Rfam assigns this 77-nucleotide RNA from Nitrosovibrio sp. Nv17 to the family "SAH (S-adenosyl-L-homocysteine) riboswitch aptamer". On this family, see Wang et al., Mol Cell 2008: "Riboswitches that sense S-adenosylhomocysteine and activate genes involved in coenzyme recycling".
[Rfam]
RNA sequence: CCGGUCGAGGAGCGCUGCAACGGGUAUAUCCCGCGAGGCUCGGCCGGGAAGGAUCGUCACAACUGCGCUCGUCCAUU
Number, nucleotide and partner (000 for none) at each position: 001c000002c046003g045004g044005u043006c042007g041008a040009g000010g000011a000012g000013c000014g000015c000016u000017g000018c000019a000020a000021c033022g032023g031024g030025u000026a000027u000028a000029u000030c024031c023032c022033g021034c000035g000036a000037g000038g000039c000040u008041c007042g006043g005044c004045c003046g002047g000048g000049a000050a000051g000052g000053a000054u000055c000056g000057u000058c000059a000060c000061a000062a000063c000064u000065g000066c000067g000068c000069u000070c000071g000072u000073c000074c000075a000076u000077u000